[Rfam]
RNA sequence: UCCCCCGCUUUCCUCCCUGAGCGGGUGCCUUAACCCUUGUUAAGGCGUUUCAUCCCCCCGGGUUUACUCCCCUUUACCCGGGGUUUUUUUG
Numbered sequence: 001u002c003c004c005c006c007g008c009u010u011u012c013c014u015c016c017c018u019g020a021g022c023g024g025g026u027g028c029c030u031u032a033a034c035c036c037u038u039g040u041u042a043a044g045g046c047g048u049u050u051c052a053u054c055c056c057c058c059c060g061g062g063u064u065u066a067c068u069c070c071c072c073u074u075u076a077c078c079c080g081g082g083g084u085u086u087u088u089u090u091g
Base pairs, nucleotide, nucleotide: 004025005024006023007022008021009020027046028045029044030043031042032041033040056083057082058081059080060079061078062077063076
This 91-nucleotide sequence from Sulfuricella denitrificans belongs to the Rfam family "Burkholderia RNA 7 (anti-hemB)". The literature on the family includes a 2007 paper in Nucleic Acids Res by Weinberg et al., "Identification of 22 candidate structured RNAs in bacteria using the CMfinder comparative genomics pipeline". This RNA motif was identified by computational search in b-proteobacteria Burkholderia. Co-purified with Hfq, expression confirmed by Northern blot. Lineage of the source: Bacteria > Pseudomonadota > Nitrosomonadales > Sulfuricellaceae > Sulfuricella denitrificans. Gene Ontology terms of the family: bacterial biofilm matrix and protein binding. Rfam 15.1 lists 479 matches to the family in 458 species.